[Rfam]
A member of the RNA family "Small nucleolar RNA snoR8a" from Theobroma cacao, 93 nucleotides long. The literature on the family includes a 2001 paper in RNA by Brown et al., "Multiple snoRNA gene clusters from Arabidopsis". The match comes from Rfam's covariance-model search (38 bits). NCBI's taxonomy places the organism under Eukaryota, Tracheophyta, eudicotyledons, Malvales, Theobroma. Gene Ontology terms of the family: RNA processing and nucleolus.

Nucleotides: 093
Base pairs, nucleotide, nucleotide: 003093004092006091007090
Number, partner (000 for none) and nucleotide at each position: 001000a002000a003093g004092u005000u006091a007090g008000c009000g010000a011000u012000a013000a014000u015000u016000a017000u018000a019000a020000a021000a022000a023000u024000a025000a026000u027000u028000a029000u030000u031000u032000g033000u034000u035000a036000u037000g038000a039000c040000u041000u042000g043000c044000u045000u046000a047000a048000u049000u050000u051000g052000g053000g054000u055000a056000u057000g058000a059000c060000a061000a062000a063000u064000a065000u066000c067000u068000u069000a070000u071000u072000a073000c074000a075000a076000u077000c078000a079000u080000a081000g082000a083000a084000u085000a086000u087000g088000a089000g090007u091006u092004a093003c